The family of this 95-nucleotide RNA sequence from Firmicutes bacterium CAG:170 is "SAM riboswitch aptamer (S box leader)". Pairs were carried over by alignment from the consensus structure, which is taken from published work.
RNA sequence: GCCUUAUCAAGAGCGACUGAGGGAACGGCCCUAUGAAGUCCGGCAACCUGCAUCUGCAAGGUGCCAAAUCCGGCGAAGUGAUCGAAAGAUGAGGA
Numbered sequence: 001g002c003c004u005u006a007u008c009a010a011g012a013g014c015g016a017c018u019g020a021g022g023g024a025a026c027g028g029c030c031c032u033a034u035g036a037a038g039u040c041c042g043g044c045a046a047c048c049u050g051c052a053u054c055u056g057c058a059a060g061g062u063g064c065c066a067a068a069u070c071c072g073g074c075g076a077a078g079u080g081a082u083c084g085a086a087a088g089a090u091g092a093g094g095a
Stems, first nucleotide, its partner, number of pairs: 002094007013041001015040003021031003026072003042065004047061002049058003069087001074084003